Shown here is a 75-nucleotide RNA, a member of the family "RAGATH-18 RNA". From the family's description: Actinobacteria, Firmicutes, Fusobacteria, Thermotogae (1 example). It is annotated as a small RNA. It is one of the family's seed sequences.

[Rfam]
RNA sequence: CCUUUUAAGAGCUACACCAAACUAGAGUAGAUAUAGUAAUUUACUAUUUCAAAAUAGAGCUUUAUGAAGAAGGAA
Number, nucleotide and partner (000 for none) at each position: 001c073002c072003u071004u070005u069006u000007a000008a000009g062010a061011g060012c059013u058014a000015c000016a000017c000018c000019a000020a000021a000022c057023u056024a055025g000026a000027g000028u000029a000030g050031a049032u000033a000034u046035a045036g044037u043038a000039a000040u000041u000042u000043a037044c036045u035046a034047u000048u000049u031050c030051a000052a000053a000054a000055u024056a023057g022058a013059g012060c011061u010062u009063u000064a000065u000066g000067a000068a000069g005070a004071a003072g002073g001074a000075a000